This 74-nucleotide RNA sequence from Alligator mississippiensis belongs to the Rfam family "Mammalian CPEB3 ribozyme". The match comes from Rfam's covariance-model search (42 bits).
RNA sequence: AGAGGCUCCCGGUGGCUGGGGCAGAAGUGCUGAUGGCACGGCCUGUCAGAUUCAACAAAUCUGCAAGUUCUGCU
Numbered sequence: 001a002g003a004g005g006c007u008c009c010c011g012g013u014g015g016c017u018g019g020g021g022c023a024g025a026a027g028u029g030c031u032g033a034u035g036g037c038a039c040g041g042c043c044u045g046u047c048a049g050a051u052u053c054a055a056c057a058a059a060u061c062u063g064c065a066a067g068u069u070c071u072g073c074u
Base pairs, nucleotide, nucleotide: 014043015042016041017040020074021073022072023071024070025069026068027039028038029037047063048062049061050060051059052058

About this RNA
Rfam links the family to the GO term RNA nuclease activity.